[Rfam]
RNA: int-alpA RNA
Organism: Burkholderia pseudomallei
RNA sequence: UCUCUGCCUAGCUCGACGGAGCGAAAAACCGGACACCUUCACCGGCCUGGCAGAGGUACCCGAAUGAAGG
Numbered sequence: 001u002c003u004c005u006g007c008c009u010a011g012c013u014c015g016a017c018g019g020a021g022c023g024a025a026a027a028a029c030c031g032g033a034c035a036c037c038u039u040c041a042c043c044g045g046c047c048u049g050g051c052a053g054a055g056g057u058a059c060c061c062g063a064a065u066g067a068a069g070g
Stems, first nucleotide, its partner, number of pairs: 001056008011022004029045004036070006